[Rfam]
This 135-nucleotide RNA sequence from Curvibacter sp. AEP1-3 belongs to the Rfam family "Glycine riboswitch aptamer". The source organism's lineage runs through Bacteria, Pseudomonadota, Betaproteobacteria, Comamonadaceae and Curvibacter. Its family is annotated with glycine biosynthetic process in the Gene Ontology.

RNA sequence: CAACACCCCACUGGAGAGAGUUUGCACCGCACAGCGGCCUGCAAACCACCGAAGGAGCAACCCGCAGUCUGCGCACCCCACAUCGUGCACGCAGGCCCGGCGAAUCUCUCAGGUAAAGCGGACAGCGGGGGCAGC
Numbered sequence: 001c002a003a004c005a006c007c008c009c010a011c012u013g014g015a016g017a018g019a020g021u022u023u024g025c026a027c028c029g030c031a032c033a034g035c036g037g038c039c040u041g042c043a044a045a046c047c048a049c050c051g052a053a054g055g056a057g058c059a060a061c062c063c064g065c066a067g068u069c070u071g072c073g074c075a076c077c078c079c080a081c082a083u084c085g086u087g088c089a090c091g092c093a094g095g096c097c098c099g100g101c102g103a104a105u106c107u108c109u110c111a112g113g114u115a116a117a118g119c120g121g122a123c124a125g126c127g128g129g130g131g132c133a134g135c
Stems, first nucleotide, its partner, number of pairs: 006130004011125003020046007048114003051110002055108003062100003